RNA sequence: CCUUUCGCUGAAGAGUCACUUGAGCGAAACCUCAUGGCCGCUAUCUAUAGCGAGCCUGAUAGGGCUGAACGCGCUGUCCGUGUCGAUCACGGCUGUCGCAUGUGGUGUCUCCGGCUACUCUAAUGGCAAGUGAACCCGCCGCCCGAAUGCGCCGCGUGCGCACAAAAAAAGGCCUUCAUCUGGCGAUGAAGGCCUUUUACU
Numbered sequence: 001c002c003u004u005u006c007g008c009u010g011a012a013g014a015g016u017c018a019c020u021u022g023a024g025c026g027a028a029a030c031c032u033c034a035u036g037g038c039c040g041c042u043a044u045c046u047a048u049a050g051c052g053a054g055c056c057u058g059a060u061a062g063g064g065c066u067g068a069a070c071g072c073g074c075u076g077u078c079c080g081u082g083u084c085g086a087u088c089a090c091g092g093c094u095g096u097c098g099c100a101u102g103u104g105g106u107g108u109c110u111c112c113g114g115c116u117a118c119u120c121u122a123a124u125g126g127c128a129a130g131u132g133a134a135c136c137c138g139c140c141g142c143c144c145g146a147a148u149g150c151g152c153c154g155c156g157u158g159c160g161c162a163c164a165a166a167a168a169a170a171g172g173c174c175u176u177c178a179u180c181u182g183g184c185g186a187u188g189a190a191g192g193c194c195u196u197u198u199a200c201u
Stems, first nucleotide, its partner, number of pairs: 003029006011021003036056003039052004062144004071099003074095001078092005102139003107135002110132001114127003149161004167198014
Dot-bracket structure: ..((((((..(((.....)))..))))))......(((((((......)))).))).....((((.....((((...(((((.....)))))..).)))..(((..((.(...(((........)))....).)).))).))))....((((.....)))).....((((((((((((((....))))))))))))))...
RNA: Burkholderia sRNA 11
Organism: Paraburkholderia megapolitana